[Rfam]
RNA sequence: GAUGGCUGUGAUGACUCGGAAUAUUCAAGCUCAACAGACCGGAAUUAGGCGUUUCUUCUUUUACAGGAGAUUCGUUUCUGUGUCGAUAACCCCGCUGAUCUGAGCCACC
Numbered sequence: 001g002a003u004g005g006c007u008g009u010g011a012u013g014a015c016u017c018g019g020a021a022u023a024u025u026c027a028a029g030c031u032c033a034a035c036a037g038a039c040c041g042g043a044a045u046u047a048g049g050c051g052u053u054u055c056u057u058c059u060u061u062u063a064c065a066g067g068a069g070a071u072u073c074g075u076u077u078c079u080g081u082g083u084c085g086a087u088a089a090c091c092c093c094g095c096u097g098a099u100c101u102g103a104g105c106c107a108c109c
Base pairs, nucleotide, nucleotide: 001109003107004106005105006104
The record is a 109-nucleotide RNA from Arabis nemorensis, which matches "Small nucleolar RNA Z107/R87" in Rfam. For this family Rfam cites "Identification of 66 box C/D snoRNAs in Arabidopsis thaliana: extensive gene duplications generated multiple isoforms predicting new ribosomal RNA 2'-O-methylation sites" (Barneche et al., J Mol Biol, 2001). Pairs were carried over by alignment from the consensus structure, which was predicted with RNAfold. Taxonomically the source falls in Arabis (Eukaryota, Streptophytina, Euphyllophyta, Mesangiospermae).